The record is a 148-nucleotide sequence from Sapajus apella, which matches "Small nucleolar RNA SNORA42/SNORA80 family" in Rfam. A search with the family's covariance model found it, with a score of 91 bits. On this family, see Schattner et al., RNA 2006: "A computational screen for mammalian pseudouridylation guide H/ACA RNAs".

RNA sequence: GCAUGUGUUUUGAUGUCAUAGGAGUUGGGAGGCCCGUCCCCCUGGGCCUGUCAUAGUACCCCAUGCCAGAGCAAACUGUGUCUGCCCCCAAACUACUGCCUGGCCUCUGUGCCUGUAGGCUGCUGGCGCUGAAGUGGGUUGCACAGCG
Numbered sequence: 001g002c003a004u005g006u007g008u009u010u011u012g013a014u015g016u017c018a019u020a021g022g023a024g025u026u027g028g029g030a031g032g033c034c035c036g037u038c039c040c041c042c043u044g045g046g047c048c049u050g051u052c053a054u055a056g057u058a059c060c061c062c063a064u065g066c067c068a069g070a071g072c073a074a075a076c077u078g079u080g081u082c083u084g085c086c087c088c089c090a091a092a093c094u095a096c097u098g099c100c101u102g103g104c105c106u107c108u109g110u111g112c113c114u115g116u117a118g119g120c121u122g123c124u125g126g127c128g129c130u131g132a133a134g135u136g137g138g139u140u141g142c143a144c145a146g147c148g
Stems, first nucleotide, its partner, number of pairs: 001066004005061001007059002026053003030049003033045002082141001084139002087137002094131002099126002101122006
NCBI's taxonomy places the organism under Eukaryota, Eumetazoa, Bilateria, Platyrrhini, Sapajus.